Record summary
Shown here is a 126-nucleotide RNA from Myotis myotis, a member of the family "U4atac minor spliceosomal RNA". The family's consensus secondary structure is taken from published work. The match comes from Rfam's covariance-model search (60 bits). The family has 61 seed sequences and 1,648 matches in Rfam 15.1. Rfam classes the family as a spliceosomal small nuclear RNA. The literature on the family includes a 2005 paper in RNA by Lorkovic et al., "Evolutionary conservation of minor U12-type spliceosome between plants and humans". From the family's description: U4atac is an essential component of the minor U12-type spliceosome complex which is required for removal of the rarer class of eukaryotic introns (AT-AC, U12-type).
[Rfam]
RNA sequence: GCCAUUCUUUUCUUAGGGUUGCACUAUUAUCCAAUAAGCAUGUAGUGAGAGCCGACCUGCUAACAGCUAAGCAACACGCUUCCAUCAACCAGAGCUCUGCUUUACUUUGGUGCGAUUUUUGGAAAA
Numbered sequence: 001g002c003c004a005u006u007c008u009u010u011u012c013u014u015a016g017g018g019u020u021g022c023a024c025u026a027u028u029a030u031c032c033a034a035u036a037a038g039c040a041u042g043u044a045g046u047g048a049g050a051g052c053c054g055a056c057c058u059g060c061u062a063a064c065a066g067c068u069a070a071g072c073a074a075c076a077c078g079c080u081u082c083c084a085u086c087a088a089c090c091a092g093a094g095c096u097c098u099g100c101u102u103u104a105c106u107u108u109g110g111u112g113c114g115a116u117u118u119u120u121g122g123a124a125a126a
Stems, first nucleotide, its partner, number of pairs: 006018004021060003027054001030051001032049001038046002083112005091103005